[Rfam]
This 62-nucleotide RNA from Fukomys damarensis belongs to the Rfam family "Selenocysteine insertion sequence 1". Pairs were carried over by alignment from the consensus structure, which is taken from published work. The source organism's lineage runs through Eukaryota, Bilateria, Teleostomi, Sarcopterygii and Fukomys. Rfam describes the family as follows. The incorporation of selenocysteine into a protein sequence is directed by an in-frame UGA codon (usually a stop codon) within the coding region of the mRNA. Selenoprotein mRNAs contain a conserved secondary structure in the 3' UTR that is required for the distinction of UGA stop from UGA selenocysteine. The selenocysteine insertion sequence (SECIS) is around 60 nt in length and adopts a hairpin structure which is sufficiently well-defined and conserved to act as a computational screen for selenoprotein genes.

RNA sequence: CUGGCACCAUGACGGCCUGCCUGCAAACCAGUGUGCUGGUGAGGCAGACCUGAGGAUGCGUG
Numbered sequence: 001c002u003g004g005c006a007c008c009a010u011g012a013c014g015g016c017c018u019g020c021c022u023g024c025a026a027a028c029c030a031g032u033g034u035g036c037u038g039g040u041g042a043g044g045c046a047g048a049c050c051u052g053a054g055g056a057u058g059c060g061u062g
Stems, first nucleotide, its partner, number of pairs: 001062001004059002014050002017047006029038003